[Rfam]
RNA sequence: UAUGGACUCACGCUUAGUUUUCAGGAAGCACUUUCUGGAGAGCGGGGGAACCAGUUUUCAGGGGCGAGUCACAUGAAUCCAUGUGUAGGGUACCAUCUUACCCGAGUCCGUCAGCUAACCUCGUCAGCAGUGGAUGGGUCCUUU
Number, nucleotide and partner (000 for none) at each position: 001u000002a000003u000004g000005g000006a000007c000008u000009c000010a000011c000012g128013c127014u126015u000016a000017g000018u041019u040020u039021u038022c037023a036024g035025g034026a033027a032028g000029c000030a000031c000032u027033u026034u025035c024036u023037g022038g021039a020040g019041a018042g124043c123044g122045g121046g120047g119048g000049a000050a000051c000052c061053a000054g000055u000056u000057u000058u000059c000060a000061g052062g109063g108064g107065c000066g000067a000068g000069u000070c085071a084072c083073a082074u000075g000076a000077a000078u000079c000080c000081a000082u073083g072084u071085g070086u000087a000088g103089g102090g101091u100092a000093c000094c000095a000096u000097c000098u000099u000100a091101c090102c089103c088104g000105a000106g000107u064108c063109c062110g000111u000112c000113a000114g000115c000116u000117a000118a000119c047120c046121u045122c044123g043124u042125c000126a014127g013128c012129a000130g000131u000132g000133g000134a000135u000136g000137g000138g000139u000140c000141c000142u000143u000144u000